RNA: c-di-AMP riboswitch aptamer (ydaO/yuaA leader)
RNA sequence: ACACGAUUUACGCCGUACCGACAGGAGCGGGGGACCCAGGUAAGCCGCCGGAACUGUGCCGCUCAACACACAGCACCGGCUUGGGGUGAAGUCGCGAUAUGCGGCCGGGCAUCUCCAGCCCGAACCCGACAGCUCACCUCGCAGGCGUCGGAGAGGAGCAGU
Numbered sequence: 001a002c003a004c005g006a007u008u009u010a011c012g013c014c015g016u017a018c019c020g021a022c023a024g025g026a027g028c029g030g031g032g033g034a035c036c037c038a039g040g041u042a043a044g045c046c047g048c049c050g051g052a053a054c055u056g057u058g059c060c061g062c063u064c065a066a067c068a069c070a071c072a073g074c075a076c077c078g079g080c081u082u083g084g085g086g087u088g089a090a091g092u093c094g095c096g097a098u099a100u101g102c103g104g105c106c107g108g109g110c111a112u113c114u115c116c117a118g119c120c121c122g123a124a125c126c127c128g129a130c131a132g133c134u135c136a137c138c139u140c141g142c143a144g145g146c147g148u149c150g151g152a153g154a155g156g157a158g159c160a161g162u
Stems, first nucleotide, its partner, number of pairs: 011147004018024001027142006037083005084127003092104004107121004